The record is a 141-nucleotide RNA sequence from Streptococcus pneumoniae, which matches "Listeria sRNA rli38" in Rfam. Lineage of the source: Bacteria > Bacillati > Bacilli > Streptococcus > Streptococcus pneumoniae. The sequence is in the family's curated seed alignment. It is annotated as a small RNA.
RNA sequence: AAUAAGAGGCAUAUACCAAUUAGAAUUCGGAAUACUAUAGUAUCAGCCUUUUAGAAUCGUGAACACAUUUUAGAAACUGAUAAAUUAAUUUAGUUUCCUACCAAAAACCCUACCAAAAAUUAAUUUGGCAGGGUUUUUCUU
Number, nucleotide and partner (000 for none) at each position: 001a000002a000003u000004a000005a000006g000007a000008g098009g097010c000011a095012u000013a000014u000015a000016c000017c000018a000019a000020u000021u000022a000023g000024a000025a000026u000027u000028c000029g000030g000031a000032a000033u000034a000035c000036u000037a000038u000039a000040g000041u082042a081043u080044c079045a078046g077047c000048c000049u075050u000051u073052u072053a071054g070055a069056a068057u067058c000059g000060u000061g000062a000063a000064c000065a000066c000067a057068u056069u055070u054071u053072a052073g051074a000075a049076a000077c046078u045079g044080a043081u042082a041083a000084a000085u000086u000087a000088a000089u000090u000091u000092a000093g000094u000095u011096u000097c009098c008099u000100a000101c000102c000103a000104a000105a137106a136107a135108c133109c132110c131111u130112a000113c128114c127115a126116a125117a124118a000119a000120u000121u000122a000123a000124u117125u116126u115127g114128g113129c000130a111131g110132g109133g108134u000135u107136u106137u105138u000139c000140u000141u000